[Rfam]
RNA sequence: UGUACACACUAUUGUAAGUCGCUUUGGAUAAAAGCGUCUGCUAAAUGAGUGCAA
Dot-bracket structure: ............((((...((((((.....))))))..))).)...........